[Rfam]
A member of the RNA family "Small nucleolar RNA SNORD87" from Callipepla squamata, 79 nucleotides long. By type it is a C/D-box small nucleolar RNA. Its family is annotated with nucleolus and RNA processing in the Gene Ontology. The literature on the family includes a 2001 paper in EMBO J by Huttenhofer et al., "RNomics: an experimental approach that identifies 201 candidates for novel, small, non-messenger RNAs in mouse".
RNA sequence: GCUGGCAUCAUGAUGAUGACUCUUUGCCGUUUACCCAACUGAUUUUUUUGAUGAGUAACACCAUAUCUGAUGUGCCAGC
Numbered sequence: 001g002c003u004g005g006c007a008u009c010a011u012g013a014u015g016a017u018g019a020c021u022c023u024u025u026g027c028c029g030u031u032u033a034c035c036c037a038a039c040u041g042a043u044u045u046u047u048u049u050g051a052u053g054a055g056u057a058a059c060a061c062c063a064u065a066u067c068u069g070a071u072g073u074g075c076c077a078g079c
Stems, first nucleotide, its partner, number of pairs: 001079007
Dot-bracket structure: (((((((.................................................................)))))))